[Rfam]
RNA sequence: UGUCUCCUCCACCCUCCUUAUUUGGUGGAUUAAGCCCGAAGCCUUCACGGCUCCGGGCUUUUUUUU
Numbered sequence: 001u002g003u004c005u006c007c008u009c010c011a012c013c014c015u016c017c018u019u020a021u022u023u024g025g026u027g028g029a030u031u032a033a034g035c036c037c038g039a040a041g042c043c044u045u046c047a048c049g050g051c052u053c054c055g056g057g058c059u060u061u062u063u064u065u066u
Base pairs, nucleotide, nucleotide: 008029009028010027011026012025013024033059034058035057036056037055038054040052041051042050

Record summary
Betaproteobacteria toxic small RNA: a 66-nucleotide sequence from Pigmentiphaga litoralis. The family has 51 seed sequences and 951 matches in Rfam 15.1. The match comes from Rfam's covariance-model search (61 bits). Overexpression in amino aid rich medium attenuates growth, suggesting role in repressing amino acid intake and metabolism. On this family, see Kimelman et al., Genome Res 2012: "A vast collection of microbial genes that are toxic to bacteria".